[Rfam]
A member of the RNA family "PyrR binding site" from Lactiplantibacillus plantarum, 115 nucleotides long. Rfam's curators put it in the seed alignment. The family's RNA type in Rfam is cis-regulatory element. Taxonomically the source falls in Lactiplantibacillus plantarum (Bacteria, Bacillota, Bacilli, Lactobacillales).
RNA sequence: AGUUCCUUUAAAUUAGCUCAGAGAGGCUGAAAAGGAUGAACGGACGUGCGCUUUCAAGGAAGCUGUGCGUAAUUUCGGACAGCCUAGCCGCUUUGAGUGGUGGGCUGUCUUUUCU
Numbered sequence: 001a002g003u004u005c006c007u008u009u010a011a012a013u014u015a016g017c018u019c020a021g022a023g024a025g026g027c028u029g030a031a032a033a034g035g036a037u038g039a040a041c042g043g044a045c046g047u048g049c050g051c052u053u054u055c056a057a058g059g060a061a062g063c064u065g066u067g068c069g070u071a072a073u074u075u076c077g078g079a080c081a082g083c084c085u086a087g088c089c090g091c092u093u094u095g096a097g098u099g100g101u102g103g104g105c106u107g108u109c110u111u112u113u114c115u
Stems, first nucleotide, its partner, number of pairs: 004036006013030006039075002044070007052062003077110010088100004